[Rfam]
Plant signal recognition particle RNA: a 309-nucleotide sequence from Eutrema salsugineum. The family is grouped with related families in Rfam's "SRP clan". It is annotated as a non-coding RNA gene.
RNA sequence: GUCGAGUUCGGUAACGCGGGCUUGUGAUCCGAGUGGAGACUAUAAGGUGAUGGAACGUUGGACCGAUCUUAAUGUGCCGGGUUCGAUUUGGGCUUUCAACCGGCCUGCCCGUUCCAAGCUGAGAGUUGAUGGUUCGGACUCGAGCGAAGGCUUGUGGGUUCGGACUUUCUUAGAGCGGAGGAGACUGCGUUAGACUGGUUUCACAGAGCAGCGUCCACCUCCCGUUCUUGGCAGUGGAAGGAUAACGGGCCGGUGCCUUCCGAGCCCACUAUGACCCAAUAAACCGGUCUCAAUUGGACCAUCACUUUU
Numbered sequence: 001g002u003c004g005a006g007u008u009c010g011g012u013a014a015c016g017c018g019g020g021c022u023u024g025u026g027a028u029c030c031g032a033g034u035g036g037a038g039a040c041u042a043u044a045a046g047g048u049g050a051u052g053g054a055a056c057g058u059u060g061g062a063c064c065g066a067u068c069u070u071a072a073u074g075u076g077c078c079g080g081g082u083u084c085g086a087u088u089u090g091g092g093c094u095u096u097c098a099a100c101c102g103g104c105c106u107g108c109c110c111g112u113u114c115c116a117a118g119c120u121g122a123g124a125g126u127u128g129a130u131g132g133u134u135c136g137g138a139c140u141c142g143a144g145c146g147a148a149g150g151c152u153u154g155u156g157g158g159u160u161c162g163g164a165c166u167u168u169c170u171u172a173g174a175g176c177g178g179a180g181g182a183g184a185c186u187g188c189g190u191u192a193g194a195c196u197g198g199u200u201u202c203a204c205a206g207a208g209c210a211g212c213g214u215c216c217a218c219c220u221c222c223c224g225u226u227c228u229u230g231g232c233a234g235u236g237g238a239a240g241g242a243u244a245a246c247g248g249g250c251c252g253g254u255g256c257c258u259u260c261c262g263a264g265c266c267c268a269c270u271a272u273g274a275c276c277c278a279a280u281a282a283a284c285c286g287g288u289c290u291c292a293a294u295u296g297g298a299c300c301a302u303c304a305c306u307u308u309u
Stems, first nucleotide, its partner, number of pairs: 001040003004023007028037003044308010056296002058293003061289005069282003073278002076275001078273001079267007090258003094255001100253008109241002112239005118232009128169002131166012143152003170175001177222005187214004195206003